Shown here is a 156-nucleotide sequence from Pseudoalteromonas sp. NBT06-2, a member of the family "Molybdenum/Tungsten riboswitch aptamer (Moco RNA motif)".

RNA sequence: AGAUUUUAACAACUCCGAGCCUUUAUACCUUCGUUCCAGAGCGUUCAAGGAAUACUGGCCGUGAUCAGGUUAGUUUAAAAAUAAUUUGGUCACCAGGGUUUAAAAAGAAAUUUUUAAACCUCCCACAACUUGGAAAGGUGUUGACAUGCUACAAGA
Numbered sequence: 001a002g003a004u005u006u007u008a009a010c011a012a013c014u015c016c017g018a019g020c021c022u023u024u025a026u027a028c029c030u031u032c033g034u035u036c037c038a039g040a041g042c043g044u045u046c047a048a049g050g051a052a053u054a055c056u057g058g059c060c061g062u063g064a065u066c067a068g069g070u071u072a073g074u075u076u077a078a079a080a081a082u083a084a085u086u087u088g089g090u091c092a093c094c095a096g097g098g099u100u101u102a103a104a105a106a107g108a109a110a111u112u113u114u115u116a117a118a119c120c121u122c123c124c125a126c127a128a129c130u131u132g133g134a135a136a137g138g139u140g141u142u143g144a145c146a147u148g149c150u151a152c153a154a155g156a
Base pairs, nucleotide, nucleotide: 003150011142012141013140015138016137019059020058021057024054025053026052028050029049033046036043061093062092063091064090065089066088067087068086069085070084071083072082096121097120098119099118100117101116102115103114104113105112106111122133123132
Source information
A search with the family's covariance model found it, with a score of 76 bits.